[Rfam]
RNA: sodF sRNA
Organism: Streptomyces sp. F-1
RNA sequence: GCGUCCCGCCUCGUGAUCGUCUUCUCACCCUUCACGGCGGCGGGCGGAUGGAGGGAGGCCCUCCGUGAGGACGUGACUCACGGAGGGCCUUC
Numbered sequence: 001g002c003g004u005c006c007c008g009c010c011u012c013g014u015g016a017u018c019g020u021c022u023u024c025u026c027a028c029c030c031u032u033c034a035c036g037g038c039g040g041c042g043g044g045c046g047g048a049u050g051g052a053g054g055g056a057g058g059c060c061c062u063c064c065g066u067g068a069g070g071a072c073g074u075g076a077c078u079c080a081c082g083g084a085g086g087g088c089c090u091u092c
Stems, first nucleotide, its partner, number of pairs: 002046002005044006013035004019029001054092016